This 47-nucleotide RNA from Solanum commersonii belongs to the Rfam family "MIR7991 microRNA precursor family".
It scores 62 bits against the family's covariance model.
Rfam links the family to the GO terms RISC complex and miRNA-mediated post-transcriptional gene silencing.
RNA sequence: AGGAGGUUGGAAUUUUUAACAAAUUACAAUAAAAACCAACCUCUUGA
Numbered sequence: 001a002g003g004a005g006g007u008u009g010g011a012a013u014u015u016u017u018a019a020c021a022a023a024u025u026a027c028a029a030u031a032a033a034a035a036c037c038a039a040c041c042u043c044u045u046g047a
Base pairs, nucleotide, nucleotide: 001045002044003043004042005041006040007039008038009037010036013035014034015033016032017031018030